A member of the RNA family "Archaeal large subunit ribosomal RNA" from Halogeometricum borinquense, 356 nucleotides of a longer RNA. Taxonomically the source falls in Halogeometricum borinquense (Archaea, Methanobacteriota, Halobacteria, Halobacteriales). It is one of the family's seed sequences.
RNA sequence: CACAGUAGCAGCGAGAGUCGGGUGCGAACCCCGACGACCUUACGAGUAAGGGUUCCUCGGCACUGCCAAUCAGCCGAGGGUUAGUCGAUCCUAAGUCUCACCGUAACUCGAAUGAGACAAACGGGAAACUGGUUAAUAUUCCAGUACCAUCACCACUCAAAGCCGACGCUUUGGGAAACUUCAAGCCGGGCCUUCGCCCGGUCGAAUCACGGAAGCUCGUGGAAGCCGUAACGGCACGAAGCGAACGAAGCGUGAGACAGCGCAAGUUGAAGGUACCUAGAGCCCGUGAAAAGGCAAGCGUGAUGAUCGUACCGAGAUCCGACACAGGUACUCUGGCGGAGAAAGCCAAGGUCUGU
Numbered sequence: 001c002a003c004a005g006u007a008g009c010a011g012c013g014a015g016a017g018u019c020g021g022g023u024g025c026g027a028a029c030c031c032c033g034a035c036g037a038c039c040u041u042a043c044g045a046g047u048a049a050g051g052g053u054u055c056c057u058c059g060g061c062a063c064u065g066c067c068a069a070u071c072a073g074c075c076g077a078g079g080g081u082u083a084g085u086c087g088a089u090c091c092u093a094a095g096u097c098u099c100a101c102c103g104u105a106a107c108u109c110g111a112a113u114g115a116g117a118c119a120a121a122c123g124g125g126a127a128a129c130u131g132g133u134u135a136a137u138a139u140u141c142c143a144g145u146a147c148c149a150u151c152a153c154c155a156c157u158c159a160a161a162g163c164c165g166a167c168g169c170u171u172u173g174g175g176a177a178a179c180u181u182c183a184a185g186c187c188g189g190g191c192c193u194u195c196g197c198c199c200g201g202u203c204g205a206a207u208c209a210c211g212g213a214a215g216c217u218c219g220u221g222g223a224a225g226c227c228g229u230a231a232c233g234g235c236a237c238g239a240a241g242c243g244a245a246c247g248a249a250g251c252g253u254g255a256g257a258c259a260g261c262g263c264a265a266g267u268u269g270a271a272g273g274u275a276c277c278u279a280g281a282g283c284c285c286g287u288g289a290a291a292a293g294g295c296a297a298g299c300g301u302g303a304u305g306a307u308c309g310u311a312c313c314g315a316g317a318u319c320c321g322a323c324a325c326a327g328g329u330a331c332u333c334u335g336g337c338g339g340a341g342a343a344a345g346c347c348a349a350g351g352u353c354u355g356u
Base pairs, nucleotide, nucleotide: 017035018034019033020032021031022030036353037352038351039350044333045332046331047330050313051312055079056078057077058076059075060074064072065071086309087308088307090124091123095118096117097116098115099114100113102110103109128145129144130143131142132141148305149304150303151302152301153300154298162295163294164293168283169282170281171280172279173278174277175276179272180271181270182269183268185202186201187200188199189198207255208254209253210252217244218243219242220241225235226234227233261266319328320327334348335347336346337345